[Rfam]
RNA: Small nucleolar RNA CD11
Organism: Drosophila gunungcola
RNA sequence: GUUUUGUUUAAUGAGGAUUGAUUUAGCAGAAGAGUUCUUGAAGACUAUAUUCAUCACCCAAAACUGAAAUACCCAA
Numbered sequence: 001g002u003u004u005u006g007u008u009u010a011a012u013g014a015g016g017a018u019u020g021a022u023u024u025a026g027c028a029g030a031a032g033a034g035u036u037c038u039u040g041a042a043g044a045c046u047a048u049a050u051u052c053a054u055c056a057c058c059c060a061a062a063a064c065u066g067a068a069a070u071a072c073c074c075a076a
Stems, first nucleotide, its partner, number of pairs: 001072002029037003